[Rfam]
RNA sequence: UGAGAAAAGCAGAAGCACCCGCUUCUCGCCUAGUGGACGUUUUAGUUCGCGGGCAUUGAAUAAUUGAUUUCAAAUUAUGAAAUAACGGUUUGCGGGUAGUUUUUGUUAACUACCCGCUUUUUCUGUAUUUU
Numbered sequence: 001u002g003a004g005a006a007a008a009g010c011a012g013a014a015g016c017a018c019c020c021g022c023u024u025c026u027c028g029c030c031u032a033g034u035g036g037a038c039g040u041u042u043u044a045g046u047u048c049g050c051g052g053g054c055a056u057u058g059a060a061u062a063a064u065u066g067a068u069u070u071c072a073a074a075u076u077a078u079g080a081a082a083u084a085a086c087g088g089u090u091u092g093c094g095g096g097u098a099g100u101u102u103u104u105g106u107u108a109a110c111u112a113c114c115c116g117c118u119u120u121u122u123c124u125g126u127a128u129u130u131u
Base pairs, nucleotide, nucleotide: 011026012025013024014023015022016021028054029053030052034049035048036047037046038045092117093116094115095114096113097112098111099110100109
Shown here is a 131-nucleotide RNA from Liquorilactobacillus oeni, a member of the family "Ribosomal protein L20 leader".
The match comes from Rfam's covariance-model search (79 bits).
Lineage of the source: Bacteria > Bacillati > Bacilli > Liquorilactobacillus > Liquorilactobacillus oeni.
The family's RNA type in Rfam is cis-regulatory leader.